[Rfam]
RNA sequence: CGCACGCGGGUGCGCGGCCGGGGCGGUUUUGCCGCCCCAGCGUCGUUCCGGUGCCGGCGAUCCCGCCGGUUCACUCCACCCGCGGAGGCUCAACCGGAAAAGAGGACAUCA
Numbered sequence: 001c002g003c004a005c006g007c008g009g010g011u012g013c014g015c016g017g018c019c020g021g022g023g024c025g026g027u028u029u030u031g032c033c034g035c036c037c038c039a040g041c042g043u044c045g046u047u048c049c050g051g052u053g054c055c056g057g058c059g060a061u062c063c064c065g066c067c068g069g070u071u072c073a074c075u076c077c078a079c080c081c082g083c084g085g086a087g088g089c090u091c092a093a094c095c096g097g098a099a100a101a102g103a104g105g106a107c108a109u110c111a
Base pairs, nucleotide, nucleotide: 001087003085005084006083007082008081009080010079012076016044017043026032053070054069055068056067057066058065
This 111-nucleotide RNA sequence from Caenispirillum bisanense belongs to the Rfam family "rpsB sRNA". The family's RNA type in Rfam is small RNA. The family's consensus secondary structure is taken from published work. For this family Rfam cites "Identification of candidate structured RNAs in the marine organism 'Candidatus Pelagibacter ubique'" (Meyer et al., BMC Genomics, 2009).